A member of the RNA family "Lysine riboswitch aptamer" from Neobacillus cucumis, 179 nucleotides long. Its family is annotated with lysine biosynthetic process in the Gene Ontology. The source organism's lineage runs through Bacteria, Bacillati, Bacilli, Caryophanales and Neobacillus. Riboswitches are metabolite binding domains within certain messenger RNAs that serve as precision sensors for their corresponding targets. The base pairs follow the family's consensus structure, which is taken from published work.

RNA sequence: AGUGAGGAUAGAGGCGCAAAGACCAUCAGUAUACCAUAGGAGGAUGAUGAGAUCCUAGGACAAUGGUGGAAAGGGGAAUUUGCCGAAGCGGAUAGAAUCUCAUUGGUCUUGAAGCUGGUUCUGUGUUGAAGAAGCACAGAAUUGUCAUAUAGGAAACUAUAUGGAGGGCUAUCUCACGC
Numbered sequence: 001a002g003u004g005a006g007g008a009u010a011g012a013g014g015c016g017c018a019a020a021g022a023c024c025a026u027c028a029g030u031a032u033a034c035c036a037u038a039g040g041a042g043g044a045u046g047a048u049g050a051g052a053u054c055c056u057a058g059g060a061c062a063a064u065g066g067u068g069g070a071a072a073g074g075g076g077a078a079u080u081u082g083c084c085g086a087a088g089c090g091g092a093u094a095g096a097a098u099c100u101c102a103u104u105g106g107u108c109u110u111g112a113a114g115c116u117g118g119u120u121c122u123g124u125g126u127u128g129a130a131g132a133a134g135c136a137c138a139g140a141a142u143u144g145u146c147a148u149a150u151a152g153g154a155a156a157c158u159a160u161a162u163g164g165a166g167g168g169c170u171a172u173c174u175c176a177c178g179c
Base pairs, nucleotide, nucleotide: 006174007173008172009171010170011169016083017082018081019080020079023076024075032068033067034066035065036064037063039061087116088115089114094109095108096107098105117143118142119141120140121139122138123137124136125135126134127133145164146163147162148161149160150159151158